Group II catalytic intron D1-D4-3: a 166-nucleotide RNA sequence from Haloferula rosea. It scores 111 bits against the family's covariance model. The base pairs follow the family's consensus structure.
RNA sequence: GUGAGGGUGACCGAGCGUGGGAAAGCAGGCUAUGGCAAAGCCAUCAGGCGAUGAACAAGAACCUCCUACGAGGCCGUCAGGGACGGGUGAGCCGGCACAACACGGCGAAGCCAUUCGUUUCCUCCCUGCAGGUAAAGGAGGCGCUUGGGUGGCGGAGGUUCCCGCU
Dot-bracket structure: ((..((....))..))...........(((....((...(((((((((((...........((((((.....(((..((((((..(((..((((........))))...)))..........))))))..)))..))))))))))).))))))....))....)))